[Rfam]
Overview
mir-676 microRNA precursor family: a 73-nucleotide sequence from Cricetulus griseus. For this family Rfam cites "The expression profile of microRNAs in mouse embryos" (Mineno et al., Nucleic Acids Res, 2006). The match comes from Rfam's covariance-model search (76 bits). The base pairs follow the family's consensus structure, which was predicted with RNAalifold. The family has 12 seed sequences and 104 matches in Rfam 15.1.

RNA sequence: AAUGCAUGACUCUGCAACCUCAGGACUCUCAAAACUACUGGAUUGCUGUCCUGAGGUUGUUGAGUUGUACGUU
Dot-bracket structure: .(((.(...(((..((((((.(((((...((............))..))))).))))))..)))...).))).
Numbered sequence: 001a002a003u004g005c006a007u008g009a010c011u012c013u014g015c016a017a018c019c020u021c022a023g024g025a026c027u028c029u030c031a032a033a034a035c036u037a038c039u040g041g042a043u044u045g046c047u048g049u050c051c052u053g054a055g056g057u058u059g060u061u062g063a064g065u066u067g068u069a070c071g072u073u
Stems, first nucleotide, its partner, number of pairs: 002072003006068001010064003015059006022052005030045002
Its family is annotated with RISC complex and miRNA-mediated post-transcriptional gene silencing in the Gene Ontology. Taxonomically the source falls in Cricetulus (Eukaryota, Sarcopterygii, Amniota, Mammalia).